[Rfam]
RNA sequence: ACUAUGAACCUGCACCUAUCAAUGGGGUUCCUCUACUCGCAUACGUUCGGACGGCCGAACCAAUUGCGU
Numbered sequence: 001a002c003u004a005u006g007a008a009c010c011u012g013c014a015c016c017u018a019u020c021a022a023u024g025g026g027g028u029u030c031c032u033c034u035a036c037u038c039g040c041a042u043a044c045g046u047u048c049g050g051a052c053g054g055c056c057g058a059a060c061c062a063a064u065u066g067c068g069u
Stems, first nucleotide, its partner, number of pairs: 006030005038068003045060006
Overview
Rfam assigns this 69-nucleotide sequence from Candidatus Microsaccharimonas sossegonensis to the family "MDR-NUDIX RNA". A search with the family's covariance model found it, with a score of 65 bits. Taxonomically the source falls in Candidatus Microsaccharimonas (Bacteria, Bacteria candidate phyla, Candidatus Saccharimonadota, Saccharimonadaceae (SeqCode)).